[Rfam]
c-di-GMP-I riboswitch aptamer: an 85-nucleotide RNA sequence from Gelria sp. Kuro-4. Its family is annotated with cyclic-di-GMP binding in the Gene Ontology. The organism belongs to Gelria, within Bacteria. The base pairs follow the family's consensus structure, which is taken from published work.
RNA sequence: CGCCCGAAACGGCAAAGUCACCGAAAGGUGGCGGCGCAAAGCCAUGGGUCUAAAGCCACGCGGCUACGAUCGCCAGGCUGCCGAA
Numbered sequence: 001c002g003c004c005c006g007a008a009a010c011g012g013c014a015a016a017g018u019c020a021c022c023g024a025a026a027g028g029u030g031g032c033g034g035c036g037c038a039a040a041g042c043c044a045u046g047g048g049u050c051u052a053a054a055g056c057c058a059c060g061c062g063g064c065u066a067c068g069a070u071c072g073c074c075a076g077g078c079u080g081c082c083g084a085a
Stems, first nucleotide, its partner, number of pairs: 012037002017032006040079004045075003048070003055064003